Shown here is a 497-nucleotide part of an RNA from Plasmodium knowlesi, a member of the family "Eukaryotic large subunit ribosomal RNA".
RNA sequence: GAAUAUUAUUAUUUAUUACAUAUAUAUAGUAUUGUGACAGUAAUCCAACUUGGUACGAGAGGAUUAGUUGGUUCAGACAAUUGGUACAGCAAUUGGUUGACAAACCAGUGUUGCGAAGCUAAGUCUGUUGGAUAAUGGCUGAACGCCUCUUAAGCCAGAAACCAUGCUGAUUAAACAAUACUAUCUCGUUCUUUUUUGUUACCCUUUUACUGCUAAUGUAAAAGAGAAAUUAUAUAUGCACCAAUUUUCUAAUUGAUGCAUUUAAUAAUCCUAUCCCCUUUUUCGUGAGCUGCUGUUCGUGAGCUGUGAGCUGGUAAUGCAAAUUACUUGUUCGUAGUUUCUGUACUACGUGAGCUGUGAGCUAGGGAAAUAGUCCUUCAACAACAAAAAAGAAUUGCACAAAUUGUAGACGACUUUUUUGCCUCGGGGUGCUGUAAACAUGAAAGUAAACUUUGUUUUACGAUCUGUUGAGGCUUAUCCUCUGUGGUAAAGUGUUA
Numbered sequence: 001g002a003a004u005a006u007u008a009u010u011a012u013u014u015a016u017u018a019c020a021u022a023u024a025u026a027u028a029g030u031a032u033u034g035u036g037a038c039a040g041u042a043a044u045c046c047a048a049c050u051u052g053g054u055a056c057g058a059g060a061g062g063a064u065u066a067g068u069u070g071g072u073u074c075a076g077a078c079a080a081u082u083g084g085u086a087c088a089g090c091a092a093u094u095g096g097u098u099g100a101c102a103a104a105c106c107a108g109u110g111u112u113g114c115g116a117a118g119c120u121a122a123g124u125c126u127g128u129u130g131g132a133u134a135a136u137g138g139c140u141g142a143a144c145g146c147c148u149c150u151u152a153a154g155c156c157a158g159a160a161a162c163c164a165u166g167c168u169g170a171u172u173a174a175a176c177a178a179u180a181c182u183a184u185c186u187c188g189u190u191c192u193u194u195u196u197u198g199u200u201a202c203c204c205u206u207u208u209a210c211u212g213c214u215a216a217u218g219u220a221a222a223a224g225a226g227a228a229a230u231u232a233u234a235u236a237u238g239c240a241c242c243a244a245u246u247u248u249c250u251a252a253u254u255g256a257u258g259c260a261u262u263u264a265a266u267a268a269u270c271c272u273a274u275c276c277c278c279u280u281u282u283u284c285g286u287g288a289g290c291u292g293c294u295g296u297u298c299g300u301g302a303g304c305u306g307u308g309a310g311c312u313g314g315u316a317a318u319g320c321a322a323a324u325u326a327c328u329u330g331u332u333c334g335u336a337g338u339u340u341c342u343g344u345a346c347u348a349c350g351u352g353a354g355c356u357g358u359g360a361g362c363u364a365g366g367g368a369a370a371u372a373g374u375c376c377u378u379c380a381a382c383a384a385c386a387a388a389a390a391a392g393a394a395u396u397g398c399a400c401a402a403a404u405u406g407u408a409g410a411c412g413a414c415u416u417u418u419u420u421g422c423c424u425c426g427g428g429g430u431g432c433u434g435u436a437a438a439c440a441u442g443a444a445a446g447u448a449a450a451c452u453u454u455g456u457u458u459u460a461c462g463a464u465c466u467g468u469u470g471a472g473g474c475u476u477a478u479c480c481u482c483u484g485u486g487g488u489a490a491a492g493u494g495u496u497a
Base pairs, nucleotide, nucleotide: 028182029181030180031179032178033177034176035175038169039168040167041166043073045071046070047069048068049067050066074127075126076125077124078123082121083120084119089114090113091112092111093108094107095106096105097104098103129164130163131162136157137156138155139154140153190393191392192391193390194389195388196387197386198385199384200383397495398494399493400492402418403417406414422487423486425484426483427481428480429479431474432473438468439467440466443464446461447460448459449458450457
The sequence is in the family's curated seed alignment. The organism belongs to Plasmodium knowlesi, within Eukaryota.